[Rfam]
RNA: Bacteriophage Diversity-Generating Retroelement RNA
RNA sequence: GCGCGUGACCCGCUAUGGCGGGCACGGCCGACCAUUGCAGCAUCGAAUGUGGUCAGCCCACGCUUCCUGCUUCGGCAAACACUCUACUGGGUUCGGAGAGCGGCGAGUAGUGAGACAUCGAAAGCCGCGCCGAC
Number, nucleotide and partner (000 for none) at each position: 001g028002c027003g000004c026005g025006u024007g023008a000009c021010c020011c000012g019013c018014u000015a000016u000017g000018g013019c012020g010021g009022g000023c007024a006025c005026g004027g002028c001029c000030g000031a000032c000033c000034a000035u000036u000037g000038c000039a000040g000041c000042a000043u000044c000045g000046a000047a000048u000049g000050u000051g000052g000053u000054c000055a000056g000057c000058c000059c000060a000061c000062g000063c000064u000065u000066c000067c000068u077069g076070c075071u000072u000073c000074g000075g070076c069077a068078a000079a000080c000081a000082c000083u000084c000085u000086a000087c000088u000089g000090g000091g134092u000093u133094c132095g131096g130097a000098g000099a000100g000101c127102g126103g125104c124105g000106a000107g000108u000109a000110g119111u117112g000113a000114g000115a000116c000117a111118u000119c110120g000121a000122a000123a000124g104125c103126c102127g101128c000129g000130c096131c095132g094133a093134c091